[Rfam]
RNA sequence: GCAGGUGAAUACAACGUUGAGCGAUGAACGUUGUGCUCCAUAAUUGUAGUUUUUCUCAUAUUGAGUUCUUAAUACAGAAUAAUUGACCAUUAUUACACCGAUGUUUAUUAACAUCGGUUUUU
Dot-bracket structure: ((((..((.(((((((((........))))))))).)).....)))).................(((..(........).....))).........((((((((......))))))))....

Rfam assigns this 122-nucleotide RNA sequence from Proteus penneri to the family "Fumarate/nitrate reductase regulator sRNA". The family's RNA type in Rfam is small RNA. On this family, see Boysen et al., J Biol Chem 2010: "Translational regulation of gene expression by an anaerobically induced small non-coding RNA in Escherichia coli". Rfam's curators put it in the seed alignment. Pairs were carried over by alignment from the consensus structure, which is taken from published work.